[Rfam]
RNA sequence: AAAAGGAGCAAUAGCCAAUUUCUUGUUCUAUCGAGAGGAUUGGUAUUGCUCCUUUU
Numbered sequence: 001a002a003a004a005g006g007a008g009c010a011a012u013a014g015c016c017a018a019u020u021u022c023u024u025g026u027u028c029u030a031u032c033g034a035g036a037g038g039a040u041u042g043g044u045a046u047u048g049c050u051c052c053u054u055u056u
Stems, first nucleotide, its partner, number of pairs: 002055012017040001020037006
Shown here is a 56-nucleotide RNA, a member of the family "Plastid-psbA-4 3UTR RNA". The family's consensus secondary structure was predicted with LocARNA. A reference for the family is Richter et al. (2023), "Retrograde signaling in plants: A critical review focusing on the GUN pathway and beyond", Plant Commun. The family is grouped with related families in Rfam's "Plastid-psbA 3UTR RNA clan". The sequence is in the family's curated seed alignment.